[Rfam]
Description:
The record is a 147-nucleotide RNA sequence from Desulfuromonas acetoxidans, which matches "FMN riboswitch aptamer (RFN element)" in Rfam. The family's consensus secondary structure is taken from published work. Rfam describes the family as follows. The RFN element is a highly conserved domain that is found frequently in the 5'-untranslated regions of prokaryotic mRNAs that encode for flavin mononucleotide (FMN) biosynthesis and transport proteins.

RNA sequence: CCCUAUUCUCAGGGCGGGGUGAAAUUCCCCACCGGCGGUGACUCCUUGUGAGAAGCCCGCGAGCGCCUUUAUUAUUGGGAUAAAGGGUCAGCAGAUCUGGUGAGAUUCCAGAGCCGACGGUUAUAGUCCGGAUGAAAGAGGAUAUUC
Numbered sequence: 001c002c003c004u005a006u007u008c009u010c011a012g013g014g015c016g017g018g019g020u021g022a023a024a025u026u027c028c029c030c031a032c033c034g035g036c037g038g039u040g041a042c043u044c045c046u047u048g049u050g051a052g053a054a055g056c057c058c059g060c061g062a063g064c065g066c067c068u069u070u071a072u073u074a075u076u077g078g079g080a081u082a083a084a085g086g087g088u089c090a091g092c093a094g095a096u097c098u099g100g101u102g103a104g105a106u107u108c109c110a111g112a113g114c115c116g117a118c119g120g121u122u123a124u125a126g127u128c129c130g131g132a133u134g135a136a137a138g139a140g141g142a143u144a145u146u147c
Base pairs, nucleotide, nucleotide: 004144005143006142007141008140009139010138017029018028019027031127032126033116034115035060036059037058038057055114056113063092064091096112097111098110099109100108118130119129120128